[Rfam]
RNA sequence: AUCUGGUCUGUGAUGAUGAUUUCAUUGAAAUUGCCUGAUACUUCAAUGAGGGCAAUUCUAGUCACUACCUCAUCUGAGGCCAGAU
Numbered sequence: 001a002u003c004u005g006g007u008c009u010g011u012g013a014u015g016a017u018g019a020u021u022u023c024a025u026u027g028a029a030a031u032u033g034c035c036u037g038a039u040a041c042u043u044c045a046a047u048g049a050g051g052g053c054a055a056u057u058c059u060a061g062u063c064a065c066u067a068c069c070u071c072a073u074c075u076g077a078g079g080c081c082a083g084a085u
Stems, first nucleotide, its partner, number of pairs: 002084005008079001
Dot-bracket structure: .(((((.(......................................................................)))))).
Shown here is an 85-nucleotide RNA from Leptobrachium leishanense, a member of the family "Small nucleolar RNA SNORD11B". It scores 52 bits against the family's covariance model. Lineage of the source: Eukaryota > Metazoa > Chordata > Dipnotetrapodomorpha > Leptobrachium. It is annotated as a C/D-box small nucleolar RNA. For this family Rfam cites "snoSeeker: an advanced computational package for screening of guide and orphan snoRNA genes in the human genome" (Yang et al., Nucleic Acids Res, 2006). Pairs were carried over by alignment from the consensus structure, which was predicted with WAR. Its family is annotated with nucleolus and RNA processing in the Gene Ontology.